[Rfam]
RNA sequence: GUGGGCAUCUUACCAGUCAGUGCUGGAUUCUGUGUCUGCUCUAACACUGUCUGGUAACGAUGUUCAC
Numbered sequence: 001g002u003g004g005g006c007a008u009c010u011u012a013c014c015a016g017u018c019a020g021u022g023c024u025g026g027a028u029u030c031u032g033u034g035u036c037u038g039c040u041c042u043a044a045c046a047c048u049g050u051c052u053g054g055u056a057a058c059g060a061u062g063u064u065c066a067c
Stems, first nucleotide, its partner, number of pairs: 002066008010057007018049005024043004
RNA: mir-8/mir-141/mir-200 microRNA precursor family
Organism: Leiothrix lutea